This 52-nucleotide RNA sequence from Felis catus belongs to the Rfam family "mir-1302 microRNA precursor family". The match comes from Rfam's covariance-model search (66 bits). Pairs were carried over by alignment from the consensus structure, which was predicted with WAR. The literature on the family includes a 2008 paper in Genome Res by Morin et al., "Application of massively parallel sequencing to microRNA profiling and discovery in human embryonic stem cells".
RNA sequence: AUUUUAGUAUAAGUAUAUCCCAUUAAUUAUUUGGGAUAUACUUACACUAAAA
Numbered sequence: 001a002u003u004u005u006a007g008u009a010u011a012a013g014u015a016u017a018u019c020c021c022a023u024u025a026a027u028u029a030u031u032u033g034g035g036a037u038a039u040a041c042u043u044a045c046a047c048u049a050a051a052a
Base pairs, nucleotide, nucleotide: 006048007047008046010044011043012042014040015039016038018036019035020034021033022031
Dot-bracket structure: .....(((.(((.(((.(((((........).)))).))).))).)))....